[Rfam]
Notes
The family of this 530-nucleotide part of an RNA from Plasmodium yoelii is "Eukaryotic large subunit ribosomal RNA". The organism belongs to Plasmodium yoelii, within Eukaryota. Pairs were carried over by alignment from the consensus structure, which is taken from published work.
RNA sequence: UAGAAAAAAGUAAGUAAGGGAAGUCGGCAAAAUAGAUCCGUAACUUCGGGAAAAGGAUUGGCUCUGAGGACAUAUGAGUAGAGCAGUUUAAAUUAACGUUUGAAAAAUGAUUUAAAGAAAGCACCUUGGUUCGCCAUCGUGUUUUUAUUUUAUUUCGUUUAUCUCAUGUUUAUUUUAUUCUAUCCCUCUACUCGCCGCUAUUUUAACGUCACUUCGGUGGCGUUUUUAUGGCAUUAUCAUGUUAACUCAGAACUGAAACGGACAAGGGGAAUCCGACUGUUUAAUUAAAACAUAGCAUUGUGAAAGCCACAAAUGGUAUUAACACAAUGUGAUUUCUGCCCAGUGCUUUGAAUGUCAACUUGAUGAAAUUCAAUCAAGCGCAGGUAAACGGCGGGAGUAACUAUGACUCUCUUAAGGUAGCCAAAUGCCUCGUCAUCUAAUUAGUGACGCGCAUGAAUGGAUUAACGAGAUUCCCACUGUCCCUACUUGCUAUCUAGCGAAACCACAGCCAAGGGAACGGGCUUGGCCAA
Dot-bracket structure: ((((....((((((((.(((..............(((((....(....).....)))))((.(((((((((((....((((((.((..(((.....(((..((.((((((..(((.((((((((..(((....)))..)))))))).)..))..)))))).))..)))......)))..))..........................................)))))).........)))))..)))))).))(...).......(((((((((..(((.........)))..((((((((.(.((((....)))).)...))))))))...(((.(((..((((((.(..(((....((((......))))....))))))))..)))))((((((.......))))))(...)...............(((((.......)))))..........)))....)).)))))))....))).)))))))).))))............(((((........)))))....